[Rfam]
RNA sequence: GCAGCCGGUCGGUCUGUCGCUUACGCUUCGGCGUAUGAGGAAAGUCCGGGCAACAUAGAGCAUCCUACUUCCUAACAGAAAGCUGUCCGCGAGGGUAGAGUAACGUAGAAGAAAAUAACCGCCGGUGUCCUUGGGCAUGGGUAAGGGUGAGAAGGUAGGGUAAGAGCCUACCAGUCUUGUGGUGACACAAGGGCUGUGCGUCUUGGGAGUUGUAAGGUCAUGUAAACCGACGCUAUGAGAGCUGCUCGCUCCAUGUCGGAGGGUAGACCGCUAAAGCCUGUAUGGUAACAUGCGGCUCAGAUAAAUGACAGACACUUUGCUGAAUGAAGAAUGAUGAAUGAAUAAUGAAGAUUUCUUCCUGAAAACAGAGAACAGAACCCGGCUUACAGACCGACUGCUUUU
Numbered sequence: 001g002c003a004g005c006c007g008g009u010c011g012g013u014c015u016g017u018c019g020c021u022u023a024c025g026c027u028u029c030g031g032c033g034u035a036u037g038a039g040g041a042a043a044g045u046c047c048g049g050g051c052a053a054c055a056u057a058g059a060g061c062a063u064c065c066u067a068c069u070u071c072c073u074a075a076c077a078g079a080a081a082g083c084u085g086u087c088c089g090c091g092a093g094g095g096u097a098g099a100g101u102a103a104c105g106u107a108g109a110a111g112a113a114a115a116u117a118a119c120c121g122c123c124g125g126u127g128u129c130c131u132u133g134g135g136c137a138u139g140g141g142u143a144a145g146g147g148u149g150a151g152a153a154g155g156u157a158g159g160g161u162a163a164g165a166g167c168c169u170a171c172c173a174g175u176c177u178u179g180u181g182g183u184g185a186c187a188c189a190a191g192g193g194c195u196g197u198g199c200g201u202c203u204u205g206g207g208a209g210u211u212g213u214a215a216g217g218u219c220a221u222g223u224a225a226a227c228c229g230a231c232g233c234u235a236u237g238a239g240a241g242c243u244g245c246u247c248g249c250u251c252c253a254u255g256u257c258g259g260a261g262g263g264u265a266g267a268c269c270g271c272u273a274a275a276g277c278c279u280g281u282a283u284g285g286u287a288a289c290a291u292g293c294g295g296c297u298c299a300g301a302u303a304a305a306u307g308a309c310a311g312a313c314a315c316u317u318u319g320c321u322g323a324a325u326g327a328a329g330a331a332u333g334a335u336g337a338a339u340g341a342a343u344a345a346u347g348a349a350g351a352u353u354u355c356u357u358c359c360u361g362a363a364a365a366c367a368g369a370g371a372a373c374a375g376a377a378c379c380c381g382g383c384u385u386a387c388a389g390a391c392c393g394a395c396u397g398c399u400u401u402u
Base pairs, nucleotide, nucleotide: 001398002397003396004395006393007392008391009390010389011387012313013312014311015310016309017308018307020037022035023034024033025032026031042385043384044383046382047381048380049379050378051212052211053210054209058247059246060245061244063208064207065206066205067204068082069081070080072078083098085096086095087094088093099203100202103201104200105199106198107197119146120145121142122141123140125138126137127136128135129134154172155171156170157169158168159167174194175192176191177190178189179188180187181186216269217268218267219266227259228258229257230256231255239251240250241249242248276296277295278294280293281292282291283290284289